[Rfam]
Rfam assigns this 98-nucleotide RNA from Synechococcus phage S-CREM1 to the family "wcaG RNA".
A search with the family's covariance model found it, with a score of 93 bits.
By type it is a cis-regulatory element.

RNA sequence: UCGGGUUUCCAGUUUUUCCAUAAGAACUGGUGGUGCGGAUGGGAUAACUCCCGCCUGGUUUCUUGUUUCCAGUCAAAGAACAAGUGGCGAGCCGAGCG
Numbered sequence: 001u002c003g004g005g006u007u008u009c010c011a012g013u014u015u016u017u018c019c020a021u022a023a024g025a026a027c028u029g030g031u032g033g034u035g036c037g038g039a040u041g042g043g044a045u046a047a048c049u050c051c052c053g054c055c056u057g058g059u060u061u062c063u064u065g066u067u068u069c070c071a072g073u074c075a076a077a078g079a080a081c082a083a084g085u086g087g088c089g090a091g092c093c094g095a096g097c098g
Stems, first nucleotide, its partner, number of pairs: 009030007040053005055072004062084006